[Rfam]
Shown here is a 45-nucleotide sequence from Musca domestica, a member of the family "Histone 3' UTR stem-loop". It scores 36 bits against the family's covariance model. On this family, see Zhang et al., Proc Natl Acad Sci U S A 2014: "Molecular mechanisms for the regulation of histone mRNA stem-loop-binding protein by phosphorylation". The organism belongs to Musca, within Eukaryota.
RNA sequence: UAAAAGGCCCUUUUCAGGGCCACAAACAACAUUUCAAAAGAUAUC
Numbered sequence: 001u002a003a004a005a006g007g008c009c010c011u012u013u014u015c016a017g018g019g020c021c022a023c024a025a026a027c028a029a030c031a032u033u034u035c036a037a038a039a040g041a042u043a044u045c
Stems, first nucleotide, its partner, number of pairs: 006021006